The record is a 142-nucleotide RNA from Chaetura pelagica, which matches "Small nucleolar RNA SNORA12" in Rfam.
Its family is annotated with RNA processing and nucleolus in the Gene Ontology.
The base pairs follow the family's consensus structure, which was predicted with RNAalifold.
The match comes from Rfam's covariance-model search (78 bits).
For this family Rfam cites "A novel experimental approach for systematic identification of box H/ACA snoRNAs from eukaryotes" (Gu et al., Nucleic Acids Res, 2005).
Taxonomically the source falls in Chaetura (Eukaryota, Metazoa, Deuterostomia, Neoaves).
About the family: U108 belongs to the H/ACA family of snoRNAs. The sequence is predicted to guide the pseudouridylation of the U372 residue in the 28S rRNA subunit.

RNA sequence: UAUUGUGGUGGUUUCUGUAUAUGGCAGAUCUGUAACUGUAUCAGAGCAGCCUUAAACCACCACAGAAAUCAGAAAGGAGAUGGCUGUGCUGAGAACUUUUUUAAGCUUUUAGUUUUCAGCUUUUUGUUGGUCUCCUACAGAA
Numbered sequence: 001u002a003u004u005g006u007g008g009u010g011g012u013u014u015c016u017g018u019a020u021a022u023g024g025c026a027g028a029u030c031u032g033u034a035a036c037u038g039u040a041u042c043a044g045a046g047c048a049g050c051c052u053u054a055a056a057c058c059a060c061c062a063c064a065g066a067a068a069u070c071a072g073a074a075a076g077g078a079g080a081u082g083g084c085u086g087u088g089c090u091g092a093g094a095a096c097u098u099u100u101u102u103a104a105g106c107u108u109u110u111a112g113u114u115u116u117c118a119g120c121u122u123u124u125u126g127u128u129g130g131u132c133u134c135c136u137a138c139a140g141a142a
Stems, first nucleotide, its partner, number of pairs: 005063007023051003027047001029045004076135006103125003